[Rfam]
RNA sequence: CCUGAUCCAUGAUGAUGCUAUACAAUUUUGAGGACUGCUGGAUGAAGCUUGCGGAUAUGGGACUGAGAUCAGCC
Numbered sequence: 001c002c003u004g005a006u007c008c009a010u011g012a013u014g015a016u017g018c019u020a021u022a023c024a025a026u027u028u029u030g031a032g033g034a035c036u037g038c039u040g041g042a043u044g045a046a047g048c049u050u051g052c053g054g055a056u057a058u059g060g061g062a063c064u065g066a067g068a069u070c071a072g073c074c
Base pairs, nucleotide, nucleotide: 002072003071004070005069
Shown here is a 74-nucleotide RNA from Sphaeramia orbicularis, a member of the family "Small nucleolar RNA SNORD99". A reference for the family is Galardi et al. (2002), "Purified box C/D snoRNPs are able to reproduce site-specific 2'-O-methylation of target RNA in vitro", Mol Cell Biol. Rfam classes the family as a C/D-box small nucleolar RNA. Its family is annotated with nucleolus and RNA processing in the Gene Ontology.